[Rfam]
RNA sequence: AGUUGCGGAGAAACUAUCAUUGGUAGUUUUUUGUAGCUGUUCCCCUCUGGAGGUUUGACGACCUUCACACUUGAAGCAUCCGUUCGCGGGUGCUUUUUU
Numbered sequence: 001a002g003u004u005g006c007g008g009a010g011a012a013a014c015u016a017u018c019a020u021u022g023g024u025a026g027u028u029u030u031u032u033g034u035a036g037c038u039g040u041u042c043c044c045c046u047c048u049g050g051a052g053g054u055u056u057g058a059c060g061a062c063c064u065u066c067a068c069a070c071u072u073g074a075a076g077c078a079u080c081c082g083u084u085c086g087c088g089g090g091u092g093c094u095u096u097u098u099u
Stems, first nucleotide, its partner, number of pairs: 001038005010032004048067007075094008

Notes: Shown here is a 99-nucleotide sequence from Gillisella ampelina, a member of the family "Alphaproteobacterial ar15". A search with the family's covariance model found it, with a score of 57 bits. Pairs were carried over by alignment from the consensus structure. Rfam classes the family as a small RNA. The organism belongs to Gillisella ampelina, within Bacteria. Its Rfam clan is "suhB sRNA clan".